RNA sequence: AAAAGAGUAAAUAACAACCCCCAUAUAUGCUGAAGAAUUGGCUUCAGCGUUUCUACCAGGACACCGUAAUGUCCGGACUAUGCGGGAAAGCGACUUCAGG
Numbered sequence: 001a002a003a004a005g006a007g008u009a010a011a012u013a014a015c016a017a018c019c020c021c022c023a024u025a026u027a028u029g030c031u032g033a034a035g036a037a038u039u040g041g042c043u044u045c046a047g048c049g050u051u052u053c054u055a056c057c058a059g060g061a062c063a064c065c066g067u068a069a070u071g072u073c074c075g076g077a078c079u080a081u082g083c084g085g086g087a088a089a090g091c092g093a094c095u096u097c098a099g100g
Stems, first nucleotide, its partner, number of pairs: 018086003022082004029048007057076001059074005
This 100-nucleotide sequence from Filibacter tadaridae belongs to the Rfam family "Purine riboswitch aptamer". Rfam describes the family as follows. Riboswitches are metabolite binding domains within certain messenger RNAs that serve as precision sensors for their corresponding targets. Allosteric rearrangement of mRNA structure is mediated by ligand binding, and this results in modulation of gene expression. A class of riboswitches that selectively recognises guanine and becomes saturated at concentrations as low as 5 nM. In Bacillus subtilis, this mRNA motif is located on at least five separate transcriptional units that together encode 17 genes that are mostly involved in purine transport and purine nucleotide biosynthesis. It has also been shown that some members of this family are specific for adenine instead. The organism belongs to Filibacter, within Bacteria. The family's consensus secondary structure is taken from published work. A search with the family's covariance model found it, with a score of 75 bits. The family is grouped with related families in Rfam's "Purine riboswitches".